[Rfam]
Shown here is a 74-nucleotide sequence from Crocodylus porosus, a member of the family "Mammalian CPEB3 ribozyme".
The organism belongs to Crocodylus, within Eukaryota.
RNA sequence: UGAGAAUUCAAGGCCAUAGCAGAAGCACUCACUAUGCCGCCCUGUCAAAUUCCAACACAUCUGUGAAUUCUGCU
Numbered sequence: 001u002g003a004g005a006a007u008u009c010a011a012g013g014c015c016a017u018a019g020c021a022g023a024a025g026c027a028c029u030c031a032c033u034a035u036g037c038c039g040c041c042c043u044g045u046c047a048a049a050u051u052c053c054a055a056c057a058c059a060u061c062u063g064u065g066a067a068u069u070c071u072g073c074u
Base pairs, nucleotide, nucleotide: 012041013040014039018074019073020072021071022070023069024068025037026036027035046063047062049060050059